[Rfam]
RNA sequence: AAUGGCACCCUAUUCCCUAUAUUGUGUACUACUGUUGGUUCUGGUCAAAUGUAGUGCACUAUAUAGGGAAUAGGGUGCCAUUU
Numbered sequence: 001a002a003u004g005g006c007a008c009c010c011u012a013u014u015c016c017c018u019a020u021a022u023u024g025u026g027u028a029c030u031a032c033u034g035u036u037g038g039u040u041c042u043g044g045u046c047a048a049a050u051g052u053a054g055u056g057c058a059c060u061a062u063a064u065a066g067g068g069a070a071u072a073g074g075g076u077g078c079c080a081u082u083u
Base pairs, nucleotide, nucleotide: 001083002082005078006077007076008075009074010073012071013070014069015068016067017066018065019064022061024059025058026057027056028055029054030053
This 83-nucleotide sequence from Oncorhynchus tshawytscha belongs to the Rfam family "mir-130 microRNA precursor family". Its family is annotated with miRNA-mediated post-transcriptional gene silencing and RISC complex in the Gene Ontology.